[Rfam]
RNA: Guanidine-I riboswitch aptamer
Organism: Magnetospira sp. QH-2
RNA sequence: ACUAAAGGCAUCUAGGGUUCCGGUUUUCCGCCUGUCUGAUGGGCAAUGGGGAAUGUCUGGUCCGAGGGUUGCCAUCCGGACGAUCCGUCCGGACACACGGCGGGACAAAAGCCCGGGAGAG
Number, nucleotide and partner (000 for none) at each position: 001a000002c000003u000004a000005a000006a000007g073008g072009c071010a070011u000012c068013u000014a000015g063016g062017g000018u000019u000020c060021c059022g057023g054024u053025u052026u051027u050028c049029c048030g047031c000032c000033u000034g000035u000036c000037u000038g000039a000040u000041g000042g000043g000044c000045a000046a000047u030048g029049g028050g027051g026052a025053a024054u023055g000056u000057c022058u000059g021060g020061u000062c016063c015064g000065a000066g000067g000068g012069u000070u010071g009072c008073c007074a000075u093076c092077c091078g090079g089080a088081c087082g000083a000084u000085c000086c000087g081088u080089c079090c078091g077092g076093a075094c000095a000096c116097a000098c119099g000100g000101c000102g114103g113104g112105a000106c000107a000108a000109a000110a000111g000112c104113c103114c102115g000116g096117g000118a000119g098120a000121g000